Shown here is a 118-nucleotide RNA sequence from a Bacillota bacterium, a member of the family "Group II catalytic intron D1-D4-2". Taxonomically the source falls in Bacillota (Bacteria, Bacillati). The pairing is the family consensus, mapped onto this sequence. The literature on the family includes a 2001 paper in Trends Genet by Bonen and Vogel, "The ins and outs of group II introns". Rfam links the family to the GO term Group II intron splicing. The match comes from Rfam's covariance-model search (79 bits).
RNA sequence: CACAAAGGAUGAGGGAGUCGCCAUGCAGGUGGAGACUUCAAACCACCCUAAACUGCUUCAGUCACAGGCUGAGGUGGUGAGCGUUAGGGGGAAAGUGGGGGCAGAGACUCCGGCAGGU
Numbered sequence: 001c002a003c004a005a006a007g008g009a010u011g012a013g014g015g016a017g018u019c020g021c022c023a024u025g026c027a028g029g030u031g032g033a034g035a036c037u038u039c040a041a042a043c044c045a046c047c048c049u050a051a052a053c054u055g056c057u058u059c060a061g062u063c064a065c066a067g068g069c070u071g072a073g074g075u076g077g078u079g080a081g082c083g084u085u086a087g088g089g090g091g092a093a094a095g096u097g098g099g100g101g102c103a104g105a106g107a108c109u110c111c112g113g114c115a116g117g118u
Stems, first nucleotide, its partner, number of pairs: 001011002014039006021032004044117001046089006052078002055075003059071004095114002098111003